[Rfam]
RNA sequence: UAGGCGGAAAGGUUUAGUGUUACCCUUUCCGCCACUUCUGUAACUUGUAACA
Numbered sequence: 001u002a003g004g005c006g007g008a009a010a011g012g013u014u015u016a017g018u019g020u021u022a023c024c025c026u027u028u029c030c031g032c033c034a035c036u037u038c039u040g041u042a043a044c045u046u047g048u049a050a051c052a
Stems, first nucleotide, its partner, number of pairs: 001034001003033010
About this RNA:
ssNA-helicase RNA: a 52-nucleotide sequence. The family's consensus secondary structure is taken from published work.